[Rfam]
RNA sequence: AUGGCAUAAAGGAAACAGGCCGCGGGCGGCAGCGCGCGGGCCGGGCCGCAUUAGCGGCAGCAGGUGGAUCAGGCGGCAUCUGCGGGACAAUG
Numbered sequence: 001a002u003g004g005c006a007u008a009a010a011g012g013a014a015a016c017a018g019g020c021c022g023c024g025g026g027c028g029g030c031a032g033c034g035c036g037c038g039g040g041c042c043g044g045g046c047c048g049c050a051u052u053a054g055c056g057g058c059a060g061c062a063g064g065u066g067g068a069u070c071a072g073g074c075g076g077c078a079u080c081u082g083c084g085g086g087a088c089a090a091u092g
Base pairs, nucleotide, nucleotide: 010091016086018042019041020040021039022037023036024035026033027032045058046057047056048055049054060083061082062081063080064079065078
Shown here is a 92-nucleotide sequence from Enterocloster asparagiformis, a member of the family "NiCo (Nickel/Cobalt) riboswitch aptamer". Pairs were carried over by alignment from the consensus structure, which is taken from published work. On this family, see Furukawa et al., Mol Cell 2015: "Bacterial riboswitches cooperatively bind Ni(2+) or Co(2+) ions and control expression of heavy metal transporters".